[Rfam]
RNA sequence: GAAUAAAUUGUAGCAUUACGUCGUAUAAUUUUGGGAAUAUGGCCCAAAAGUUUCUACCGAGCUACCGUAAAUAGCUUGACUACGAGGUAAGUGUCUUAAUAA
Numbered sequence: 001g002a003a004u005a006a007a008u009u010g011u012a013g014c015a016u017u018a019c020g021u022c023g024u025a026u027a028a029u030u031u032u033g034g035g036a037a038u039a040u041g042g043c044c045c046a047a048a049a050g051u052u053u054c055u056a057c058c059g060a061g062c063u064a065c066c067g068u069a070a071a072u073a074g075c076u077u078g079a080c081u082a083c084g085a086g087g088u089a090a091g092u093g094u095c096u097u098a099a100u101a102a
Stems, first nucleotide, its partner, number of pairs: 018088002021085005029049007058078007
RNA: Purine riboswitch aptamer